mir-393 microRNA precursor family: a 135-nucleotide RNA from Gossypium mustelinum. NCBI's taxonomy places the organism under Eukaryota, rosids, Malvaceae, Malvoideae, Gossypium.
[Rfam]
RNA sequence: UGAGAAGGCAUCCAAAGGGAUCGCAUUGAUCCUUUAUUUUUUUUCAACCCUAUAUUUUUUUUUCUUUUCAAUUCUCCCCCUCCCCCAAAACAAAUUCACAAUUUUGGAUCAUGCUAUCCCUUUGGAUUCCUCCUU
Numbered sequence: 001u002g003a004g005a006a007g008g009c010a011u012c013c014a015a016a017g018g019g020a021u022c023g024c025a026u027u028g029a030u031c032c033u034u035u036a037u038u039u040u041u042u043u044u045c046a047a048c049c050c051u052a053u054a055u056u057u058u059u060u061u062u063u064c065u066u067u068u069c070a071a072u073u074c075u076c077c078c079c080c081u082c083c084c085c086c087a088a089a090a091c092a093a094a095u096u097c098a099c100a101a102u103u104u105u106g107g108a109u110c111a112u113g114c115u116a117u118c119c120c121u122u123u124g125g126a127u128u129c130c131u132c133c134u135u
Base pairs, nucleotide, nucleotide: 002135003134004133006131008129010127011126012125013124014123015122016121017120018119019118020117021116023114024113025112026111028110029109030108031107032106036103